[Rfam]
RNA sequence: GCCCCGUUAAAGAGCUAACACCGCCGAGAGCGAGUGCCGGAGAUAAGCGCCGGGAUGGGGCAUAAGUU
Numbered sequence: 001g002c003c004c005c006g007u008u009a010a011a012g013a014g015c016u017a018a019c020a021c022c023g024c025c026g027a028g029a030g031c032g033a034g035u036g037c038c039g040g041a042g043a044u045a046a047g048c049g050c051c052g053g054g055a056u057g058g059g060g061c062a063u064a065a066g067u068u
Stems, first nucleotide, its partner, number of pairs: 002060004014035003037053004042048001
Shown here is a 68-nucleotide RNA sequence from Hafnia alvei, a member of the family "rydB RNA". The family's consensus secondary structure was predicted with RNAalifold. The match comes from Rfam's covariance-model search (65 bits). Rfam's curators write: This family consists of several bacterial sequences from E. coli, Shigella flexneri and Salmonella species. This RNA gene was discovered by an RNA screen between the ydiC and ydiH in E. coli. This gene is only 67 bases in length and is composed of a hairpin like structure. The function of this RNA is unknown. The literature on the family includes a 2001 paper in Genes Dev by Wassarman et al., "Identification of novel small RNAs using comparative genomics and microarrays". Rfam classes the family as a small RNA.